[Rfam]
RNA sequence: AGCCCGUUGGUGAAGUGGUUUAACACACUGCGUUCUCAGCGCAGCAUUCAGGGGUUCGAACCCCCUACGGGUUA
Number, nucleotide and partner (000 for none) at each position: 001a073002g072003c071004c070005c069006g068007u067008u000009g000010g026011u025012g024013a000014a000015g000016u000017g000018g000019u000020u000021u000022a000023a000024c012025a011026c010027a000028c044029u043030g042031c041032g040033u000034u000035c000036u000037c000038a000039g000040c032041g031042c030043a029044g028045c000046a000047u000048u000049c000050a066051g065052g064053g063054g062055u000056u000057c000058g000059a000060a000061c000062c054063c053064c052065c051066u050067a007068c006069g005070g004071g003072u002073u001074a000
Overview:
Rfam assigns this 74-nucleotide RNA from Mycoplasma sp. CAG:472 to the family "tRNA". Transfer RNA (tRNA) molecules are approximately 80 nucleotides in length. Rfam links the family to the GO term triplet codon-amino acid adaptor activity. Taxonomically the source falls in Mycoplasma (Bacteria, Mollicutes, Mycoplasmatales, Mycoplasmataceae).